[Rfam]
RNA: Cyanobacterial functional RNA 21
Organism: Prochlorococcus marinus
RNA sequence: GGAAUUUUCUUUUUGGAUUCGAAACCUUUCAUGAUCUUAAACAUAACCUCUCAUUCAGAAAUUUUGUCAUGAUUUAAUAAAUCAAUUGGCUUGCUUAACCCUUAUUUAAAAAACAAAUCUUUUUUAAUUGGACACAAAUAAUAUCGGCACAACAUGUUGCAAUAAAAUUAAUGUUUAAAUUUUAUCCUCAAAAACCACUGCUAUG
Dot-bracket structure: (((...........(((((.(((....)))..)))))(((((((.............((......((((((((((...))))))..)))).........((....((((((((......))))))))..))............)).(((........)))..........))))))).......)))..................